[Rfam]
RNA sequence: CCCUAGCCCGGAUUGCAGUGGAAAUCCUGACAUUGCUAAAGAGAAUCGUGAUUAGAUUGCUUCGUUCCUCGCAAUGACAGAUUGAAACGGAAAGCCGGAAUAGCU
Numbered sequence: 001c002c003c004u005a006g007c008c009c010g011g012a013u014u015g016c017a018g019u020g021g022a023a024a025u026c027c028u029g030a031c032a033u034u035g036c037u038a039a040a041g042a043g044a045a046u047c048g049u050g051a052u053u054a055g056a057u058u059g060c061u062u063c064g065u066u067c068c069u070c071g072c073a074a075u076g077a078c079a080g081a082u083u084g085a086a087a088c089g090g091a092a093a094g095c096c097g098g099a100a101u102a103g104c105u
Base pairs, nucleotide, nucleotide: 009097010096011095013093014092018088019087023083024082025081026080029078031076032075033074034073035072036071
RNA: Flavo-1 RNA
Organism: Flavobacterium sangjuense